This 96-nucleotide RNA from Rhizobiales bacterium PAR1 belongs to the Rfam family "Glycine riboswitch aptamer". The source organism's lineage runs through Bacteria, Pseudomonadati, Pseudomonadota, Alphaproteobacteria and Hyphomicrobiales.

RNA sequence: AUCUCCCGCGCGGGAGAGAGCGGUGACCGGUGGUCGCCGCCGCCGAAGGCGCAACCGCCCCGGAAACGCUCAGGCACCACGGACCGCGCGAGAAAA
Numbered sequence: 001a002u003c004u005c006c007c008g009c010g011c012g013g014g015a016g017a018g019a020g021c022g023g024u025g026a027c028c029g030g031u032g033g034u035c036g037c038c039g040c041c042g043c044c045g046a047a048g049g050c051g052c053a054a055c056c057g058c059c060c061c062g063g064a065a066a067c068g069c070u071c072a073g074g075c076a077c078c079a080c081g082g083a084c085c086g087c088g089c090g091a092g093a094a095a096a
Stems, first nucleotide, its partner, number of pairs: 007090007020040008042075003045071002049069003055063002
Annotation
It scores 61 bits against the family's covariance model. Rfam links the family to the GO term glycine biosynthetic process.